About this RNA: Bacterial large subunit ribosomal RNA: a 379-nucleotide part of an RNA from Bermanella marisrubri.

[Rfam]
RNA sequence: GAUAAGGGGGGUGAAAAACCUCCCCGCCGGAAGACUAAGGGUUCCUGUCCAAUGCUAAUCAGGGCAGGGUUAGUCGGCCCCUAAGGCGAGGCUGAGAAGCGUAGUCGAUGGGAAACGGAUUAAUAUUUCCGUACUUGUAAUUAUUGCGAUGGGGGGACGGAGAAGGCUAGGCUAGCUGGGCGUUGGUUGUCCCAGUUUAAGGUUGUAGGCUGAGAACUUAGGCAAAUCCGGGUUCUUAAGGCCGAGAGCUGAUGACGGUGACUCUACGGAGUCCGAAGUAGUCGAUGCCAUGCUUCCAGGAAAAGCCUCUAAGCUUCAGAUAAUUACAAACCGUACCCUAAACCGACACAGGUGGUCAGGUAGAGAAUACCAAGGCGCU
Dot-bracket structure: .....((((((.......))))))((((....((((..((...((((((...((.....)).))))))......(((..((...(((.(.(((....))).).)))...))...(((((........)))))..(((((((((((((...((((....((((..(((..(((((((((((..........))))))((..((((...(((..(((((((.((.....)))))))))....)))...))))...))....(((((....))))).....)))))...)))...)))).........))))...))....))))))))))).)))..)).....((......)).)))).((((.....))))..))))..